[Rfam]
Overview
This 148-nucleotide RNA from Wenjunlia tyrosinilytica belongs to the Rfam family "Streptomyces-metK RNA". By type it is a small RNA.
Nucleotides: 148
Base pairs, nucleotide, nucleotide: 048109049108050107052105056100057099059097060096124135125134126133127132
Number, partner (000 for none) and nucleotide at each position: 001000g002000c003000g004000a005000g006000a007000c008000a009000c010000g011000a012000c013000g014000c015000c016000c017000g018000c019000u020000c021000g022000a023000g024000u025000g026000a027000g028000c029000u030000g031000c032000c033000c034000g035000a036000u037000a038000a039000a040000c041000u042000g043000g044000u045000c046000a047000c048109g049108g050107c051000a052105u053000c054000g055000c056100g057099c058000a059097g060096g061000c062000g063000c064000a065000g066000c067000c068000c069000u070000g071000u072000a073000c074000g075000g076000u077000g078000c079000c080000u081000a082000g083000u084000c085000c086000c087000g088000c089000c090000c091000u092000c093000c094000u095000u096060c097059c098000c099057g100056c101000c102000g103000u104000c105052g106000g107050g108049u109048c110000g111000g112000a113000g114000g115000g116000g117000u118000a119000c120000a121000a122000g123000c124135c125134a126133g127132c128000a129000g130000c131000c132127g133126c134125u135124g136000c137000a138000a139000c140000c141000c142000c143000a144000g145000g146000g147000a148000g